[Rfam]
RNA sequence: GAAAAAAUUUAUCUCCGAGCCUGUUUAACCUUCACCGGCGGCGGUGGUGGUUUGCAGGCCGAUAAGGUGUAAGGGGAAACCCUUAUGCCCCCCAGUGCGGAAAGGAGAUGAGAAAUGCCAGCU
Numbered sequence: 001g002a003a004a005a006a007a008u009u010u011a012u013c014u015c016c017g018a019g020c021c022u023g024u025u026u027a028a029c030c031u032u033c034a035c036c037g038g039c040g041g042c043g044g045u046g047g048u049g050g051u052u053u054g055c056a057g058g059c060c061g062a063u064a065a066g067g068u069g070u071a072a073g074g075g076g077a078a079a080c081c082c083u084u085a086u087g088c089c090c091c092c093c094a095g096u097g098c099g100g101a102a103a104g105g106a107g108a109u110g111a112g113a114a115a116u117g118c119c120a121g122c123u
Base pairs, nucleotide, nucleotide: 004116011109012108013107014106015105016104019059020058021057022056023055024054027052028051029050030049034045035044036043037042066089067088068087069086070085071084072083073082074081075080091100092099
This 123-nucleotide RNA from Pelotomaculum thermopropionicum belongs to the Rfam family "Molybdenum/Tungsten riboswitch aptamer (Moco RNA motif)".
NCBI's taxonomy places the organism under Bacteria, Bacillati, Clostridia, Pelotomaculum, Pelotomaculum thermopropionicum.